[Rfam]
RNA sequence: CACACACGGACAUGGGUUACCGGCCGGGAGAAAUCCGGCGGAACCUCCGGUGGCGUAGCGGGACCCUCCCGACAACGUCAAGCGUCCGUGGAGGCUCAACCGGAAAGGAAAGUU
Numbered sequence: 001c002a003c004a005c006a007c008g009g010a011c012a013u014g015g016g017u018u019a020c021c022g023g024c025c026g027g028g029a030g031a032a033a034u035c036c037g038g039c040g041g042a043a044c045c046u047c048c049g050g051u052g053g054c055g056u057a058g059c060g061g062g063a064c065c066c067u068c069c070c071g072a073c074a075a076c077g078u079c080a081a082g083c084g085u086c087c088g089u090g091g092a093g094g095c096u097c098a099a100c101c102g103g104a105a106a107g108g109a110a111a112g113u114u
Base pairs, nucleotide, nucleotide: 001093003091005090006089007088008087009086010085014045015044025037026036028035052079053078054077055076056075
This 114-nucleotide sequence from Mesorhizobium sp. L-8-10 belongs to the Rfam family "rpsB sRNA".
For this family Rfam cites "Identification of candidate structured RNAs in the marine organism 'Candidatus Pelagibacter ubique'" (Meyer et al., BMC Genomics, 2009).
The match comes from Rfam's covariance-model search (47 bits).
The organism belongs to Mesorhizobium, within Bacteria.
The family's RNA type in Rfam is small RNA.
Pairs were carried over by alignment from the consensus structure, which is taken from published work.